Small nucleolar RNA SNORD113/SNORD114 family: a 76-nucleotide sequence from Muntiacus reevesi. The family's consensus secondary structure is taken from published work. By type it is a C/D-box small nucleolar RNA. Its family is annotated with RNA processing and nucleolus in the Gene Ontology. Rfam 15.1 lists 5,721 matches to the family in 142 species. The literature on the family includes a 2002 paper in Hum Mol Genet by Cavaille et al., "Identification of tandemly-repeated C/D snoRNA genes at the imprinted human 14q32 domain reminiscent of those at the Prader-Willi/Angelman syndrome region".

[Rfam]
RNA sequence: AGGACCAAUGAUGAUGACUGAUGAUAAAGUAGUCAUGGGUGAUGAGAAAAUAUGUAUCUGAAACUUUGAGGUCCAA
Numbered sequence: 001a002g003g004a005c006c007a008a009u010g011a012u013g014a015u016g017a018c019u020g021a022u023g024a025u026a027a028a029g030u031a032g033u034c035a036u037g038g039g040u041g042a043u044g045a046g047a048a049a050a051u052a053u054g055u056a057u058c059u060g061a062a063a064c065u066u067u068g069a070g071g072u073c074c075a076a
Base pairs, nucleotide, nucleotide: 002074003073004072005071006070